[Rfam]
RNA: Iron response element I
Organism: Erpetoichthys calabaricus
RNA sequence: CGAGUUCCCGCUUCAACAGUGAUUGAACGGAACUCA
Numbered sequence: 001c002g003a004g005u006u007c008c009c010g011c012u013u014c015a016a017c018a019g020u021g022a023u024u025g026a027a028c029g030g031a032a033c034u035c036a
Stems, first nucleotide, its partner, number of pairs: 002035007010028001012027005017021001